[Rfam]
RNA sequence: UAUUAAAUUUUUUAUUUAUUUGUACUGUUAAAAAUUGGCAUGGUUAACAGAAUAAUCAAACAACGACACAUGACAUGCCACAUGUACCUUGUGCUCACAUGCAUUGAUCAAUUUGUAACCGUAGAAAUAAAUGAAUUUUUAGCA
Dot-bracket structure: ..(((((...((((((.((((.(((..(((.((...............................................................................)).)))..))).)))).))))))..)))))..
Background
Rfam assigns this 144-nucleotide RNA sequence from Gossypium hirsutum to the family "MIR7502 microRNA precursor family". Pairs were carried over by alignment from the consensus structure, which was predicted with RNAalifold.